[Rfam]
RNA sequence: UAGGGGAGUUGGGGCCAGGAGCUCCCCCCUGAUCCCAGGGUAACUUUAAAGAUGGGGGGGCA
Numbered sequence: 001u002a003g004g005g006g007a008g009u010u011g012g013g014g015c016c017a018g019g020a021g022c023u024c025c026c027c028c029c030u031g032a033u034c035c036c037a038g039g040g041u042a043a044c045u046u047u048a049a050a051g052a053u054g055g056g057g058g059g060g061c062a
Stems, first nucleotide, its partner, number of pairs: 008041003012036003016031004022060006
The family of this 62-nucleotide sequence from Nannospalax galili is "Gag/pol translational readthrough site". Rfam classes the family as a cis-regulatory element. NCBI's taxonomy places the organism under Eukaryota, Deuterostomia, Teleostomi, Sarcopterygii, Nannospalax. Pairs were carried over by alignment from the consensus structure, which is taken from published work.